This 339-nucleotide RNA from Hucho hucho belongs to the Rfam family "Vertebrate telomerase RNA". Rfam classes the family as a non-coding RNA gene. The family is grouped with related families in Rfam's "Telomerase clan". About the family: Telomerase is a ribonucleoprotein reverse transcriptase that synthesises telomeric DNA. Telomerase RNAs differ greatly in sequence and structure between vertebrates, ciliates and yeasts, but they share a 5' pseudoknot structure close to the template sequence. The match comes from Rfam's covariance-model search (91 bits). Rfam 15.1 lists 523 matches to the family in 477 species.

RNA sequence: UUUUUCAAACGGAGUGUCUCUUCUAACCCUAAAUUUGGGCGACUUCCUGUACUAUAUACGUUUACUGUUUUGUCUCUUGCUUUCAGUAGACGACAGGAAGUUUUCGAAUAUUGGUAGGCAUAUGGCAAACAAAAAAGCAAAGAUAUUCACUCUGUGACGCUCACUCUUCCCGAUGGAAUCACCAUGAACAUGCCGUGGUCAGCAUGGCUGCCGCGAAGAGUUCGUCUCUGCUGCUCUGGUGAUUUUCUCUGGAAAGAACUUGUUGAGCAGAUCAAACUGAGCUGGGUAACAGGCGGAUCUAAAUUAUGAUUCGGGUCGAGAGCCCAUGCUCAAACAUUU
Numbered sequence: 001u002u003u004u005u006c007a008a009a010c011g012g013a014g015u016g017u018c019u020c021u022u023c024u025a026a027c028c029c030u031a032a033a034u035u036u037g038g039g040c041g042a043c044u045u046c047c048u049g050u051a052c053u054a055u056a057u058a059c060g061u062u063u064a065c066u067g068u069u070u071u072g073u074c075u076c077u078u079g080c081u082u083u084c085a086g087u088a089g090a091c092g093a094c095a096g097g098a099a100g101u102u103u104u105c106g107a108a109u110a111u112u113g114g115u116a117g118g119c120a121u122a123u124g125g126c127a128a129a130c131a132a133a134a135a136a137g138c139a140a141a142g143a144u145a146u147u148c149a150c151u152c153u154g155u156g157a158c159g160c161u162c163a164c165u166c167u168u169c170c171c172g173a174u175g176g177a178a179u180c181a182c183c184a185u186g187a188a189c190a191u192g193c194c195g196u197g198g199u200c201a202g203c204a205u206g207g208c209u210g211c212c213g214c215g216a217a218g219a220g221u222u223c224g225u226c227u228c229u230g231c232u233g234c235u236c237u238g239g240u241g242a243u244u245u246u247c248u249c250u251g252g253a254a255a256g257a258a259c260u261u262g263u264u265g266a267g268c269a270g271a272u273c274a275a276a277c278u279g280a281g282c283u284g285g286g287u288a289a290c291a292g293g294c295g296g297a298u299c300u301a302a303a304u305u306a307u308g309a310u311u312c313g314g315g316u317c318g319a320g321a322g323c324c325c326a327u328g329c330u331c332a333a334a335c336a337u338u339u
Stems, first nucleotide, its partner, number of pairs: 005157002009155008042101005059092009075143003078139003081135003160267004165257004170252003178243007194215005200210004217229004279331004283326005296311004